[Rfam]
RNA sequence: AGGACCUUUAAUGGAAGUCCAGAGAGGCUUACAAGGUCGCAAGCUACAACGUCGUCACGGAAGUGGCAGACGUGUGCCUCUUUGCGACCAUAAUCGCGAAGAGGCUUUUUUU
Numbered sequence: 001a002g003g004a005c006c007u008u009u010a011a012u013g014g015a016a017g018u019c020c021a022g023a024g025a026g027g028c029u030u031a032c033a034a035g036g037u038c039g040c041a042a043g044c045u046a047c048a049a050c051g052u053c054g055u056c057a058c059g060g061a062a063g064u065g066g067c068a069g070a071c072g073u074g075u076g077c078c079u080c081u082u083u084g085c086g087a088c089c090a091u092a093a094u095c096g097c098g099a100a101g102a103g104g105c106u107u108u109u110u111u112u
Stems, first nucleotide, its partner, number of pairs: 003038006015030005049073005054067005074107001076105012
Dot-bracket structure: ..((((((......(((((......)))))..))))))..........((((((((((....))))).)))))(.((((((((((((......)))))))))))).).....
A member of the RNA family "PyrR binding site" from Terribacillus sp. AE2B 122, 112 nucleotides long. Pairs were carried over by alignment from the consensus structure, which is taken from published work. Taxonomically the source falls in Terribacillus (Bacteria, Bacillati, Bacillota, Caryophanales). It scores 63 bits against the family's covariance model. By type it is a cis-regulatory element. For this family Rfam cites "Molecular recognition of pyr mRNA by the Bacillus subtilis attenuation regulatory protein PyrR" (Bonner et al., Nucleic Acids Res, 2001).